[Rfam]
RNA sequence: UCCUCGGAGUGUUAUAUCAAAUGAGAGUAGUGUAUUGUUUGCAAUCAUGAAAUUCAGACACAUUGAACAGGGAA
Number, nucleotide and partner (000 for none) at each position: 001u072002c071003c070004u069005c000006g000007g000008a000009g061010u060011g059012u058013u057014a000015u000016a000017u000018c000019a000020a000021a000022u056023g055024a054025g000026a000027g000028u000029a000030g048031u047032g046033u000034a000035u044036u043037g000038u000039u000040u000041g000042c000043a036044a035045u000046c032047a031048u030049g000050a000051a000052a000053u000054u024055c023056a022057g013058a012059c011060a010061c009062a000063u000064u000065g000066a000067a000068c000069a004070g003071g002072g001073a000074a000